[Rfam]
Group II catalytic intron D1-D4-6: a 224-nucleotide sequence from Endozoicomonas numazuensis. The base pairs follow the family's consensus structure.
RNA sequence: AAAGCCCUUCAUCCGGUAAGGUCUAGCAAACCGCCGGAACCCCGAGUCAUGGGCGGUUGUCAGUAAUGACAAUGGUUAAGCGUUGACAGGGGAAGAUGCAGGCUCAGUAUUGAGCUCCGAAACCAUUAUCGAGAACGCCGACCACGUUGGGUGAUUGGGAAGGCAAUACAACAAGAGUGCGUUACUGCAAGUGCCCUUGUUGGUUAUCCGGAGUCGUUAGACCU
Dot-bracket structure: ...........(((((...(((.[.[[..))).))))).((((..(((((((((.(((((((....))))))).)))...)).)))).))))...................(.((((((...........((.((((((..(((...........)))...)))....((((((..((((......]].]))))..))))))))).))))))))).........